[Rfam]
RNA sequence: UGCACUUAUUUCAACAGAAACUCAGCGGCCACCGCGCAGGUGGCCUUUUUU
Numbered sequence: 001u002g003c004a005c006u007u008a009u010u011u012c013a014a015c016a017g018a019a020a021c022u023c024a025g026c027g028g029c030c031a032c033c034g035c036g037c038a039g040g041u042g043g044c045c046u047u048u049u050u051u
Stems, first nucleotide, its partner, number of pairs: 002026002009020004027045007